This 76-nucleotide RNA sequence from Lachnospira multipara belongs to the Rfam family "c-di-GMP-I riboswitch aptamer". Gene Ontology term of the family: cyclic-di-GMP binding.
RNA sequence: UUAUAUAAAAGGUAAAAUAAAGGAAACUUUAUGACACAAAACUAAAGGGGCUUUAAAAUGCCAGCCAGUUGCUAUA
Numbered sequence: 001u002u003a004u005a006u007a008a009a010a011g012g013u014a015a016a017a018u019a020a021a022g023g024a025a026a027c028u029u030u031a032u033g034a035c036a037c038a039a040a041a042c043u044a045a046a047g048g049g050g051c052u053u054u055a056a057a058a059u060g061c062c063a064g065c066c067a068g069u070u071g072c073u074a075u076a
Base pairs, nucleotide, nucleotide: 012037013036017032018031019030020029021028022027040070041069042068043067047066048065049062050061051060